Overview
The family of this 78-nucleotide RNA from Romanomermis culicivorax is "mir-87 microRNA precursor family". The match comes from Rfam's covariance-model search (64 bits). On this family, see Sempere et al., Dev Biol 2003: "Temporal regulation of microRNA expression in Drosophila melanogaster mediated by hormonal signals and broad-Complex gene activity".
RNA sequence: UGCUAUUCGCCUGCAAAUUUUGGCUCAACCUUUGAAAUUGUAGAAAUUAGGUGAGCAAAGUUUCAGGUGUGACAGCGA
Numbered sequence: 001u002g003c004u005a006u007u008c009g010c011c012u013g014c015a016a017a018u019u020u021u022g023g024c025u026c027a028a029c030c031u032u033u034g035a036a037a038u039u040g041u042a043g044a045a046a047u048u049a050g051g052u053g054a055g056c057a058a059a060g061u062u063u064c065a066g067g068u069g070u071g072a073c074a075g076c077g078a
Stems, first nucleotide, its partner, number of pairs: 002076003006072002008069006016061001018059003024055004029051003